[Rfam]
RNA sequence: GGUCCAAUGCCACGUCUCCGGGAGCGAUACAGCGAUGACCGAUGAUGCUAUGAUUGGACCAAAAUGGAUCUCAUGUUUCGCAUUUUGAUAGGAAUCUGUGGAUUGACUCAUCCCGUUCGUUCACGAAGCCGUUUACUGCGAUUACAUUU
Numbered sequence: 001g002g003u004c005c006a007a008u009g010c011c012a013c014g015u016c017u018c019c020g021g022g023a024g025c026g027a028u029a030c031a032g033c034g035a036u037g038a039c040c041g042a043u044g045a046u047g048c049u050a051u052g053a054u055u056g057g058a059c060c061a062a063a064a065u066g067g068a069u070c071u072c073a074u075g076u077u078u079c080g081c082a083u084u085u086u087g088a089u090a091g092g093a094a095u096c097u098g099u100g101g102a103u104u105g106a107c108u109c110a111u112c113c114c115g116u117u118c119g120u121u122c123a124c125g126a127a128g129c130c131g132u133u134u135a136c137u138g139c140g141a142u143u144a145c146a147u148u149u
Stems, first nucleotide, its partner, number of pairs: 002059007009051001013047004020040002024033002078141005091130002097125002100122004
A member of the RNA family "Small nucleolar RNA snoR2/U65" from Actinidia chinensis, 149 nucleotides long. Its family is annotated with RNA processing and nucleolus in the Gene Ontology. It is annotated as an H/ACA-box small nucleolar RNA. Clan: SNORA65 clan. The organism belongs to Actinidia chinensis, within Eukaryota. The family's consensus secondary structure was predicted with WAR.